Source information: Rfam assigns this 171-nucleotide sequence to the family "Group II catalytic intron D1-D4-3". The base pairs follow the family's consensus structure.
RNA sequence: GUCGCCGCGAGGCGUCGUGGGAAGGAAGCGGCAGGCAAAACGAUGACCUGAGGAACACGAACCGCAUAGGAGGCGGACGUUCGGCGGACGAGCGGGCAGAGAGACGCGAAGUCCGAAGCGACCCGGACCGGACGGACGUAGAUGCGGCGGGUUAUCGGGAAGGCCACACGU
Number, nucleotide and partner (000 for none) at each position: 001g016002u000003c014004g013005c012006c011007g000008c000009g000010a000011g006012g005013c004014g003015u000016c001017g000018u000019g000020g000021g000022a000023a000024g000025g000026a000027a000028g171029c170030g169031g000032c000033a000034g000035g164036c163037a000038a000039a000040a000041c157042g156043a155044u154045g153046a152047c151048c150049u149050g148051a000052g000053g000054a000055a000056c000057a000058c000059g000060a000061a000062c147063c146064g145065c144066a143067u142068a000069g000070g000071a000072g000073g139074c138075g137076g000077a000078c000079g133080u132081u131082c130083g129084g128085c000086g114087g113088a112089c111090g000091a000092g107093c106094g105095g000096g000097c000098a000099g000100a000101g000102a000103g000104a000105c094106g093107c092108g000109a000110a000111g089112u088113c087114c086115g000116a000117a000118g000119c000120g000121a000122c000123c000124c000125g000126g000127a000128c084129c083130g082131g081132a080133c079134g000135g000136a000137c075138g074139u073140a000141g000142a067143u066144g065145c064146g063147g062148c050149g049150g048151g047152u046153u045154a044155u043156c042157g041158g000159g000160a000161a000162g000163g036164c035165c000166a000167c000168a000169c030170g029171u028